This 132-nucleotide RNA from Aotus nancymaae belongs to the Rfam family "Small nucleolar RNA SNORA51". About the family: ACA51 is a member of the H/ACA class of snoRNA that guide the sites of modification of uridines to pseudouridines. Rfam classes the family as an H/ACA-box small nucleolar RNA. The family's consensus secondary structure was predicted with PFOLD. A search with the family's covariance model found it, with a score of 142 bits. Its family is annotated with RNA processing and nucleolus in the Gene Ontology. Taxonomically the source falls in Aotus (Eukaryota, Opisthokonta, Gnathostomata, Haplorrhini).
RNA sequence: GGUCUCCUGGUGCUUUCCACAGACUGUGUUCUUACACUGAUUGUAUAGAAAGAGGAGGCAGAAUAAACCUACCCCAUAUACAGUUCAGCCCAGGACCUGUGCCUGGUUUGUAUUGUGAAUGGGGAAAUACAG
Numbered sequence: 001g002g003u004c005u006c007c008u009g010g011u012g013c014u015u016u017c018c019a020c021a022g023a024c025u026g027u028g029u030u031c032u033u034a035c036a037c038u039g040a041u042u043g044u045a046u047a048g049a050a051a052g053a054g055g056a057g058g059c060a061g062a063a064u065a066a067a068c069c070u071a072c073c074c075c076a077u078a079u080a081c082a083g084u085u086c087a088g089c090c091c092a093g094g095a096c097c098u099g100u101g102c103c104u105g106g107u108u109u110g111u112a113u114u115g116u117g118a119a120u121g122g123g124g125a126a127a128u129a130c131a132g
Stems, first nucleotide, its partner, number of pairs: 002059007020043003026037004072124006086110003090106005